RNA: MIR390 microRNA precursor family
RNA sequence: UGGGAGAAUCUGUAAAGCUCAGGAGGGAUAGCACCUUCAACCUGAUGAUGCUGUUUAUGUUCAUAGCAGCAUAUAUUUGGCGCUAUCUAUUCUGAGCUUCAUGGCUUCUUCUU
Number, nucleotide and partner (000 for none) at each position: 001u000002g000003g000004g000005a000006g000007a000008a000009u000010c104011u000012g000013u000014a000015a000016a098017g097018c096019u095020c094021a093022g092023g091024a090025g000026g088027g087028a086029u085030a084031g083032c082033a000034c080035c079036u000037u000038c000039a000040a000041c000042c000043u000044g000045a000046u000047g000048a000049u000050g000051c000052u000053g000054u000055u000056u000057a000058u000059g000060u000061u000062c000063a000064u000065a000066g000067c000068a000069g000070c000071a000072u000073a000074u000075a000076u000077u000078u000079g035080g034081c000082g032083c031084u030085a029086u028087c027088u026089a000090u024091u023092c022093u021094g020095a019096g018097c017098u016099u000100c000101a000102u000103g000104g010105c000106u000107u000108c000109u000110u000111c000112u000113u000